[Rfam]
RNA sequence: CUUUCACGUAUAAUAAACAUCCGUAUAAUCUUGACAAUAUGGGUCAAGAGUUUCUACCAAGGUACCUUAAAUCUUUGACUAUGGAUGAACCUAAUUUAAUA
Numbered sequence: 001c002u003u004u005c006a007c008g009u010a011u012a013a014u015a016a017a018c019a020u021c022c023g024u025a026u027a028a029u030c031u032u033g034a035c036a037a038u039a040u041g042g043g044u045c046a047a048g049a050g051u052u053u054c055u056a057c058c059a060a061g062g063u064a065c066c067u068u069a070a071a072u073c074u075u076u077g078a079c080u081a082u083g084g085a086u087g088a089a090c091c092u093a094a095u096u097u098a099a100u101a
Stems, first nucleotide, its partner, number of pairs: 018087008029049007058077005064072001
RNA: Purine riboswitch aptamer